[Rfam]
RNA: Small nucleolar RNA Z161/Z228
Organism: Morus notabilis
RNA sequence: AAAUCAAAUGAUGAGUACGGAUUUAAUUUUCUCACGACGGUCGUCUGAGAUACUCUCCUUGAUGUUAAAGGAUCCACAACUCCUGAUGAUU
Number, nucleotide and partner (000 for none) at each position: 001a091002a090003a000004u088005c000006a000007a000008a000009u000010g000011a000012u000013g000014a000015g000016u000017a000018c000019g000020g000021a000022u000023u000024u000025a000026a000027u000028u000029u000030u000031c000032u000033c000034a000035c000036g000037a000038c000039g000040g000041u000042c000043g000044u000045c000046u000047g000048a000049g057050a056051u000052a000053c000054u000055c000056u050057c049058c000059u000060u000061g000062a000063u000064g000065u000066u000067a000068a000069a000070g000071g000072a000073u000074c000075c000076a000077c000078a000079a000080c000081u000082c000083c000084u000085g000086a000087u000088g004089a000090u002091u001